[Rfam]
RNA sequence: GUCCACGAUGCGACGGACCAGAGCCAUACCCCUCCUACGACAAUCGCCGCAGCCGGCCAGACUCUCGUCGUCAUGGUGACAAGGCCGGCUGC
Dot-bracket structure: ((((..........))))....((.(....(.......)....).)).((((((((((....(.....(......).....)))))))))))
Rfam assigns this 92-nucleotide RNA sequence from Mesorhizobium sp. NBSH29 to the family "Rhizobiales sRNA Atu_Ti1". A search with the family's covariance model found it, with a score of 72 bits. The literature on the family includes a 2012 paper in RNA Biol by Wilms et al., "Deep sequencing uncovers numerous small RNAs on all four replicons of the plant pathogen Agrobacterium tumefaciens". Taxonomically the source falls in Mesorhizobium (Bacteria, Pseudomonadati, Pseudomonadota, Phyllobacteriaceae). The family's RNA type in Rfam is small RNA.